[Rfam]
RNA sequence: UGAACAGGUAGAGGUCGCAAAUUUCAUUAAGCCUAUGGAGUGAAGCAACAUGUAGAAAUAGGUCUAGGGAAAUUGGCCGAAACGGUUUUUCAUUGCUUUGAAUCAUCGUUGGGGCGUAAGUAAACAGCUUGCGUACUGUCUUAGCACAAGCUAAGGUGCGCUAUGUUUUGU
Numbered sequence: 001u002g003a004a005c006a007g008g009u010a011g012a013g014g015u016c017g018c019a020a021a022u023u024u025c026a027u028u029a030a031g032c033c034u035a036u037g038g039a040g041u042g043a044a045g046c047a048a049c050a051u052g053u054a055g056a057a058a059u060a061g062g063u064c065u066a067g068g069g070a071a072a073u074u075g076g077c078c079g080a081a082a083c084g085g086u087u088u089u090u091c092a093u094u095g096c097u098u099u100g101a102a103u104c105a106u107c108g109u110u111g112g113g114g115c116g117u118a119a120g121u122a123a124a125c126a127g128c129u130u131g132c133g134u135a136c137u138g139u140c141u142u143a144g145c146a147c148a149a150g151c152u153a154a155g156g157u158g159c160g161c162u163a164u165g166u167u168u169u170g171u
Base pairs, nucleotide, nucleotide: 006166008164009163010162011161017077018076020074021073022072023071024070025069031063032062033061034060035059036058081110082109083108084107085106086105089102090101091100092099111137112136114134115133116132117131118130119129120128121127139156140155141154142153143152144151145150
Lysine riboswitch aptamer: a 171-nucleotide RNA from Tetragenococcus halophilus. Pairs were carried over by alignment from the consensus structure, which is taken from published work.